[Rfam]
Purine riboswitch aptamer: a 99-nucleotide RNA from Gracilibacillus kekensis.
Rfam's curators write: Riboswitches are metabolite binding domains within certain messenger RNAs that serve as precision sensors for their corresponding targets.
The source organism's lineage runs through Bacteria, Bacillati, Bacillota, Bacilli and Gracilibacillus.
The family's consensus secondary structure is taken from published work.
RNA sequence: ACUAAAAAAAUUAUAUCGACCUGUAUAACCUCAGAAUAUGGCUUGGGGGUCUCUACCAGGAACCUUAAAAUCCUGAUUACAGAAAAUGAACUUCUCAUU
Number, nucleotide and partner (000 for none) at each position: 001a000002c000003u000004a000005a000006a000007a000008a000009a000010a000011u000012u000013a000014u000015a000016u000017c000018g000019a000020c000021c082022u081023g080024u079025a078026u000027a000028a000029c048030c047031u046032c045033a044034g042035a000036a000037u000038a000039u000040g000041g000042c034043u000044u033045g032046g031047g030048g029049g000050u000051c000052u000053c000054u000055a000056c000057c075058a074059g073060g072061a071062a000063c000064c000065u000066u000067a000068a000069a000070a000071u061072c060073c059074u058075g057076a000077u000078u025079a024080c023081a022082g021083a000084a000085a000086a000087u000088g000089a000090a000091c000092u000093u000094c000095u000096c000097a000098u000099u000
A search with the family's covariance model found it, with a score of 64 bits.